[Rfam]
Nucleotides: 165
Stems, first nucleotide, its partner, number of pairs: 001016001004013003028165001030163002035158002041151005047144004062140006073132003079126004085111003090105004
Number, partner (000 for none) and nucleotide at each position: 001016u002000a003000a004013u005012c006011c007000g008000c009000g010000a011006g012005g013004a014000g015000a016001g017000g018000u019000c020000u021000g022000a023000a024000g025000g026000a027000a028165g029000c030163c031162g032000g033000c034000c035158g036157c037000a038000a039000a040000a041151c042150u043149g044148c045147g046000a047144g048143c049142u050141g051000a052000u053000g054000a055000a056000c057000a058000a059000g060000a061000a062140c063139a064138u065137c066136a067135u068000c069000u070000g071000a072000g073132g074131c075130g076000u077000a078000u079126u080125c081124u082123g083000g084000a085111g086110g087109c088000g089000a090105g091104a092103u093102g094000g095000c096000a097000c098000a099000a100000g101000a102093c103092a104091u105090c106000g107000a108000a109087g110086c111085c112000g113000u114000g115000u116000g117000a118000u119000c120000u121000a122000a123082c124081g125080g126079a127000c128000a129000a130075c131074g132073u133000a134000a135067a136066u137065g138064a139063u140062g141050c142049a143048g144047c145000a146000g147045u148044g149043c150042a151041g152000a153000g154000a155000a156000a157036g158035u159000u160000c161000a162031u163030g164000u165028u
Shown here is a 165-nucleotide RNA from Ectothiorhodospiraceae bacterium BW-2, a member of the family "Group II catalytic intron D1-D4-3". Group II introns are found in rRNA, tRNA and mRNA of organelles in fungi, plants and protists, and also in mRNA in bacteria. NCBI's taxonomy places the organism under Bacteria, Pseudomonadati, Pseudomonadota, Chromatiales, Ectothiorhodospiraceae.